A member of the RNA family "Purine riboswitch aptamer" from Anaerobacillus alkalidiazotrophicus, 101 nucleotides long. A search with the family's covariance model found it, with a score of 82 bits.
[Rfam]
RNA sequence: CGAACGUUGUAGAUAUACCUUCAUAUAUCCUUAGGAAUAGGCCUAAGAGUUUCUACCAAGUCACCGUAAAUGACUUGACUAUGAAGGCGGGAACUUUUCUA
Numbered sequence: 001c002g003a004a005c006g007u008u009g010u011a012g013a014u015a016u017a018c019c020u021u022c023a024u025a026u027a028u029c030c031u032u033a034g035g036a037a038u039a040g041g042c043c044u045a046a047g048a049g050u051u052u053c054u055a056c057c058a059a060g061u062c063a064c065c066g067u068a069a070a071u072g073a074c075u076u077g078a079c080u081a082u083g084a085a086g087g088c089g090g091g092a093a094c095u096u097u098u099c100u101a
Stems, first nucleotide, its partner, number of pairs: 018087008030047006057077007